[Rfam]
RNA: c-di-AMP riboswitch aptamer (ydaO/yuaA leader)
RNA sequence: UUCUAAAACUAGCCUAAUUUCCGUUUUUGGAAAACGGGGGAACCACCUUGGGUGAAUUGAUUUCGACGCUAUGUGCUUCCAUUGUCAUAUGCGUCUUGGGAAUCAUAGGGGACCUUCAAACCGAACCCCACAGCUAACCUCGUCGGCAUCGGAAGGAGUUUCA
Numbered sequence: 001u002u003c004u005a006a007a008a009c010u011a012g013c014c015u016a017a018u019u020u021c022c023g024u025u026u027u028u029g030g031a032a033a034a035c036g037g038g039g040g041a042a043c044c045a046c047c048u049u050g051g052g053u054g055a056a057u058u059g060a061u062u063u064c065g066a067c068g069c070u071a072u073g074u075g076c077u078u079c080c081a082u083u084g085u086c087a088u089a090u091g092c093g094u095c096u097u098g099g100g101a102a103u104c105a106u107a108g109g110g111g112a113c114c115u116u117c118a119a120a121c122c123g124a125a126c127c128c129c130a131c132a133g134c135u136a137a138c139c140u141c142g143u144c145g146g147c148a149u150c151g152g153a154a155g156g157a158g159u160u161u162c163a
Base pairs, nucleotide, nucleotide: 012147013146014145018033019032020031021030022029023028034143035142036141037140038139039138050128051127052126058105059104060103061102062101063100064099108122109121